[Rfam]
This 36-nucleotide RNA from Ornithorhynchus anatinus belongs to the Rfam family "Iron response element I". The match comes from Rfam's covariance-model search (45 bits). The literature on the family includes a 1987 paper in Science by Hentze et al., "Identification of the iron-responsive element for the translational regulation of human ferritin mRNA". Its family is annotated with response to iron ion in the Gene Ontology. The organism belongs to Ornithorhynchus, within Eukaryota.

RNA sequence: CUGGUUCCUGCUCCAACAGUGCUUGGACGGAACCAA
Numbered sequence: 001c002u003g004g005u006u007c008c009u010g011c012u013c014c015a016a017c018a019g020u021g022c023u024u025g026g027a028c029g030g031a032a033c034c035a036a
Stems, first nucleotide, its partner, number of pairs: 002035007010028001012027005017021001